Rfam assigns this 35-nucleotide RNA sequence from Kordia sp. SMS9 to the family "DUF805b RNA". Taxonomically the source falls in Kordia (Bacteria, Bacteroidota, Flavobacteriia, Flavobacteriaceae).
RNA sequence: CAGGAGGCAUCUGAAAAUCCCAAACAGAGUAGGAA
Numbered sequence: 001c002a003g004g005a006g007g008c009a010u011c012u013g014a015a016a017a018u019c020c021c022a023a024a025c026a027g028a029g030u031a032g033g034a035a
Stems, first nucleotide, its partner, number of pairs: 003020003010034003